[Rfam]
RNA sequence: CGAUAAUCUAGCCAAACUUACCGCGAGGUAAGGUCGGAAAGCCACGGAUCUUUAAGGAAACUUUAAGAUGGCCGGGUUGCAUUG
Numbered sequence: 001c002g003a004u005a006a007u008c009u010a011g012c013c014a015a016a017c018u019u020a021c022c023g024c025g026a027g028g029u030a031a032g033g034u035c036g037g038a039a040a041g042c043c044a045c046g047g048a049u050c051u052u053u054a055a056g057g058a059a060a061c062u063u064u065a066a067g068a069u070g071g072c073c074g075g076g077u078u079g080c081a082u083u084g
Stems, first nucleotide, its partner, number of pairs: 012037002017032006040078004045074003048069003055063003
RNA: c-di-GMP-I riboswitch aptamer
Organism: Methylophaga muralis